[Rfam]
RNA sequence: AUCAUCAAAGGACGAUAUACAAGUAAAUCUUAGGACACCAUUGGACACAACCCUUUGUUGGUUGUGGAUGAGAAAACCAUUUUUCUGAUGAUGAU
Numbered sequence: 001a002u003c004a005u006c007a008a009a010g011g012a013c014g015a016u017a018u019a020c021a022a023g024u025a026a027a028u029c030u031u032a033g034g035a036c037a038c039c040a041u042u043g044g045a046c047a048c049a050a051c052c053c054u055u056u057g058u059u060g061g062u063u064g065u066g067g068a069u070g071a072g073a074a075a076a077c078c079a080u081u082u083u084u085c086u087g088a089u090g091a092u093g094a095u
Stems, first nucleotide, its partner, number of pairs: 001095007043052002
Small nucleolar RNA snoR31/Z110/Z27: a 95-nucleotide RNA from Coffea canephora. The family's RNA type in Rfam is C/D-box small nucleolar RNA. About the family: This family contains several related snoRNAs including R31, Z27 and Z110. The match comes from Rfam's covariance-model search (46 bits).